A member of the RNA family "Ribosomal S15 leader" from a BD1-7 clade bacterium, 123 nucleotides long. The match comes from Rfam's covariance-model search (50 bits). For this family Rfam cites "Pseudoknot and translational control in the expression of the S15 ribosomal protein" (Benard et al., Biochimie, 1996).

[Rfam]
RNA sequence: CGACCUGUCUGUAAAUAUGCGCGGACAGGCCGCAUUAUUCGCAUAUUAUUGAAAGAGGUUUUAAUUAUGGCUUUAAGUGCCACAGAAAAAGCAGCAAUUGUUAAAGAUUACCAAACAGCUGAA
Number, nucleotide and partner (000 for none) at each position: 001c000002g000003a000004c000005c000006u000007g026008u025009c024010u023011g022012u021013a000014a000015a000016u000017a000018u000019g000020c000021g012022c011023g010024g009025a008026c007027a000028g000029g000030c000031c000032g000033c000034a000035u000036u000037a000038u000039u000040c000041g000042c000043a000044u000045a000046u000047u000048a000049u077050u076051g000052a000053a000054a000055g074056a073057g072058g071059u000060u000061u000062u000063a000064a000065u000066u000067a000068u000069g000070g000071c058072u057073u056074u055075a000076a050077g049078u000079g000080c000081c000082a000083c000084a000085g000086a000087a000088a000089a000090a000091g000092c000093a000094g000095c000096a000097a000098u000099u000100g000101u000102u000103a000104a000105a000106g000107a000108u000109u000110a000111c000112c000113a000114a000115a000116c000117a000118g000119c000120u000121g000122a000123a000
The E. coli Ribosomal S15 gene 5' UTR can form two alternative structures. One that is a series of three hairpins, The other includes a pseudoknot. This structure causes translational regulation of the S15 protein. The alignment of this family contains only the final two hairpins which are conserved in other species, and also includes the complete region that forms the alternate structures. Its family is annotated with regulation of translation, ncRNA-mediated in the Gene Ontology.